A member of the RNA family "TPP riboswitch aptamer (THI element)" from Streptococcus merionis, 101 nucleotides long.
Taxonomically the source falls in Streptococcus (Bacteria, Bacillati, Bacilli, Lactobacillales).
The base pairs follow the family's consensus structure, which is taken from published work.
[Rfam]
RNA sequence: AAAUGUCACAAGAGGAGCGAUUUGCUGAGAUUGGCUUAAUGCCUAAACUCUUAUCACCUGAUCAAGUUAGAACUUGCGUAGGGAUGUGGCAGAAGAUUGAA
Numbered sequence: 001a002a003a004u005g006u007c008a009c010a011a012g013a014g015g016a017g018c019g020a021u022u023u024g025c026u027g028a029g030a031u032u033g034g035c036u037u038a039a040u041g042c043c044u045a046a047a048c049u050c051u052u053a054u055c056a057c058c059u060g061a062u063c064a065a066g067u068u069a070g071a072a073c074u075u076g077c078g079u080a081g082g083g084a085u086g087u088g089g090c091a092g093a094a095g096a097u098u099g100a101a
Base pairs, nucleotide, nucleotide: 006089007088008087009086010085011051012050013049014048017025018024019023033043034042035041057082058081059080060079063076064075065074066073